[Rfam]
RNA: mir-399 microRNA precursor family
RNA sequence: CAUAUAAUUACUGGGCAAUUACUUCUUUGGCAGUUGGCCACUCGAUGACUGCAUGCAACAAAAUGCAGCAAAAGAUAUUUCCAUUGAAGUAAGCUCACUGCCAAAGGAGAUUUGCCCGGCAAUUCACCU
Numbered sequence: 001c002a003u004a005u006a007a008u009u010a011c012u013g014g015g016c017a018a019u020u021a022c023u024u025c026u027u028u029g030g031c032a033g034u035u036g037g038c039c040a041c042u043c044g045a046u047g048a049c050u051g052c053a054u055g056c057a058a059c060a061a062a063a064u065g066c067a068g069c070a071a072a073a074g075a076u077a078u079u080u081c082c083a084u085u086g087a088a089g090u091a092a093g094c095u096c097a098c099u100g101c102c103a104a105a106g107g108a109g110a111u112u113u114g115c116c117c118g119g120c121a122a123u124u125c126a127c128c129u
Stems, first nucleotide, its partner, number of pairs: 006124004011119008022109004028103007036095003